[Rfam]
RNA sequence: GGCAGUUCUCGGGUGAUGCACCCCAGAAUCGGGCUCCCUCCUCUCUGGUUCCGGACUGCAUCACCCGAGAACCGUC
Numbered sequence: 001g002g003c004a005g006u007u008c009u010c011g012g013g014u015g016a017u018g019c020a021c022c023c024c025a026g027a028a029u030c031g032g033g034c035u036c037c038c039u040c041c042u043c044u045c046u047g048g049u050u051c052c053g054g055a056c057u058g059c060a061u062c063a064c065c066c067g068a069g070a071a072c073c074g075u076c
Base pairs, nucleotide, nucleotide: 002075003074005072006071007070008069009068010067011066012065013064014063015062016061017060019058020057023054026051027050028049029048030047031046032045033044

The family of this 76-nucleotide RNA sequence from Myotis lucifugus is "mir-9223 microRNA precursor family". Taxonomically the source falls in Myotis (Eukaryota, Metazoa, Deuterostomia, Vertebrata).